A member of the RNA family "Small nucleolar RNA Z161/Z228" from Ricinus communis, 96 nucleotides long.
Rfam 15.1 lists 630 matches to the family in 214 species.
The family's consensus secondary structure was predicted with PFOLD.
Rfam classes the family as a C/D-box small nucleolar RNA.
Taxonomically the source falls in Ricinus (Eukaryota, Magnoliopsida, Pentapetalae, Acalypheae).
The family is grouped with related families in Rfam's "SNORD35 clan".
RNA sequence: AAAUCAAGUGAUGAAAUUGGAUUUAAAUUUCUCACGACGGUCGUCUGAGGCACCUCAAAGUGUCGAAUUGAUGAGUGAUCCAAUCAUCUGAUGAUU
Numbered sequence: 001a002a003a004u005c006a007a008g009u010g011a012u013g014a015a016a017u018u019g020g021a022u023u024u025a026a027a028u029u030u031c032u033c034a035c036g037a038c039g040g041u042c043g044u045c046u047g048a049g050g051c052a053c054c055u056c057a058a059a060g061u062g063u064c065g066a067a068u069u070g071a072u073g074a075g076u077g078a079u080c081c082a083a084u085c086a087u088c089u090g091a092u093g094a095u096u
Stems, first nucleotide, its partner, number of pairs: 001096002004093001051062003
Source information
Rfam's curators put it in the seed alignment. Gene Ontology terms of the family: nucleolus and RNA processing.